[Rfam]
RNA sequence: UGGUAGAUGCACCCUGAUCCAUACCCUGGAGGCUAACUCCAGGGCUUCUUUAU
Numbered sequence: 001u002g003g004u005a006g007a008u009g010c011a012c013c014c015u016g017a018u019c020c021a022u023a024c025c026c027u028g029g030a031g032g033c034u035a036a037c038u039c040c041a042g043g044g045c046u047u048c049u050u051u052a053u
Base pairs, nucleotide, nucleotide: 002013003012004011024044025043026042027041028040029039030038031037

The record is a 53-nucleotide RNA sequence from Desertifilum tharense, which matches "Nitrogen stress-induced RNA 1" in Rfam. For this family Rfam cites "Heterocyst-specific transcription of NsiR1, a non-coding RNA encoded in a tandem array of direct repeats in cyanobacteria" (Ionescu et al., J Mol Biol, 2010).